[Rfam]
RNA: c-di-GMP-I riboswitch aptamer
Organism: Ferroacidibacillus organovorans
RNA sequence: AUUUCAUAUUGGCAAACCUAUCGAAAGAUAGGGACGCAAAGCUACGGGUCUAAGGGCUGUCGCCUAUGAUCGCCGGGUUGCUGCC
Numbered sequence: 001a002u003u004u005c006a007u008a009u010u011g012g013c014a015a016a017c018c019u020a021u022c023g024a025a026a027g028a029u030a031g032g033g034a035c036g037c038a039a040a041g042c043u044a045c046g047g048g049u050c051u052a053a054g055g056g057c058u059g060u061c062g063c064c065u066a067u068g069a070u071c072g073c074c075g076g077g078u079u080g081c082u083g084c085c
Stems, first nucleotide, its partner, number of pairs: 012037002017032006040079004045075003048070003055064003